A member of the RNA family "Small nucleolar RNA SNORA13" from Chloroceryle aenea, 132 nucleotides long. The family's RNA type in Rfam is H/ACA-box small nucleolar RNA. The family is grouped with related families in Rfam's "SNORA13 clan". The base pairs follow the family's consensus structure, which was predicted with CMfinder. Rfam's curators write: ACA13 is a member of the H/ACA class of snoRNA that guide the sites of modification of uridines to pseudouridines. The family has 50 seed sequences and 1,034 matches in Rfam 15.1. Taxonomically the source falls in Chloroceryle (Eukaryota, Craniata, Euteleostomi, Neoaves). Gene Ontology terms of the family: nucleolus and RNA processing.
[Rfam]
RNA sequence: UGCCUUUGUGUUGCCCAUUCAUUCCUGUCCUGAAUAAAUGUGGUGUCAAAAAAGGCAAACAGGAAUUCUUGCUCAAACUGUCUAAGGAGGUGGUUAUUUACCUUUAUCCUCUCUGUUUUUGCAAGGACAAAA
Numbered sequence: 001u002g003c004c005u006u007u008g009u010g011u012u013g014c015c016c017a018u019u020c021a022u023u024c025c026u027g028u029c030c031u032g033a034a035u036a037a038a039u040g041u042g043g044u045g046u047c048a049a050a051a052a053a054g055g056c057a058a059a060c061a062g063g064a065a066u067u068c069u070u071g072c073u074c075a076a077a078c079u080g081u082c083u084a085a086g087g088a089g090g091u092g093g094u095u096a097u098u099u100a101c102c103u104u105u106a107u108c109c110u111c112u113c114u115g116u117u118u119u120u121g122c123a124a125g126g127a128c129a130a131a132a
Stems, first nucleotide, its partner, number of pairs: 002056006009048002012045004016040004021035003068125005075118003082115001085112003089107001092103002